[Rfam]
RNA: Small nucleolar RNA R160
RNA sequence: UGCAAAAUAAUAAGAAUUAUAAUCUGAAUUUUUAUUCUUGAAUCAUUUUAAUAACCUUCAAAGUUCUCUAAUUGCU
Numbered sequence: 001u002g003c004a005a006a007a008u009a010a011u012a013a014g015a016a017u018u019a020u021a022a023u024c025u026g027a028a029u030u031u032u033u034a035u036u037c038u039u040g041a042a043u044c045a046u047u048u049u050a051a052u053a054a055c056c057u058u059c060a061a062a063g064u065u066c067u068c069u070a071a072u073u074g075c076u
Stems, first nucleotide, its partner, number of pairs: 002075004